[Rfam]
RNA sequence: UAUUAGUUAAAAAUCAAACCUUGUAUAAGUUCAAGAAUAGGGCUUGAACGUUUCUACCGGGCUGCCGUAAAUAGCCUGUCUACAGGGACAUGAAAAAUCAAU
Numbered sequence: 001u002a003u004u005a006g007u008u009a010a011a012a013a014u015c016a017a018a019c020c021u022u023g024u025a026u027a028a029g030u031u032c033a034a035g036a037a038u039a040g041g042g043c044u045u046g047a048a049c050g051u052u053u054c055u056a057c058c059g060g061g062c063u064g065c066c067g068u069a070a071a072u073a074g075c076c077u078g079u080c081u082a083c084a085g086g087g088a089c090a091u092g093a094a095a096a097a098u099c100a101a102u
Stems, first nucleotide, its partner, number of pairs: 019087007029049007058078007
Source information
This 102-nucleotide RNA sequence from Bacillus sp. FJAT-49711 belongs to the Rfam family "Purine riboswitch aptamer". Rfam's curators write: Riboswitches are metabolite binding domains within certain messenger RNAs that serve as precision sensors for their corresponding targets. A search with the family's covariance model found it, with a score of 86 bits. The family's consensus secondary structure is taken from published work. The organism belongs to Bacillus, within Bacteria.